The record is a 48-nucleotide RNA from Ruegeria sp. ANG-S4, which matches "Guanidine-II riboswitch aptamer (mini-ykkC)" in Rfam.
Lineage of the source: Bacteria > Pseudomonadati > Pseudomonadota > Roseobacteraceae > Ruegeria.
The base pairs follow the family's consensus structure, which is taken from published work.
From the family's description: Simpler in structure and has fewer highly conserved nucleotide positions than the ykkC-yxkD leader. Despite this each of its two stem-loop structures directly bind free guanidine. Therefore, mini-ykkC RNA motif represents a distinct class of guanidine-sensing RNAs. Its crystal structure was also determined.
RNA sequence: GGACGAGGACGACCUCACCAUCAUGGAUGAUCAUUCGGGACGACCCGG
Numbered sequence: 001g002g003a004c005g006a007g008g009a010c011g012a013c014c015u016c017a018c019c020a021u022c023a024u025g026g027a028u029g030a031u032c033a034u035u036c037g038g039g040a041c042g043a044c045c046c047g048g
Base pairs, nucleotide, nucleotide: 002019005016006015007014008013035048036047037046038045039044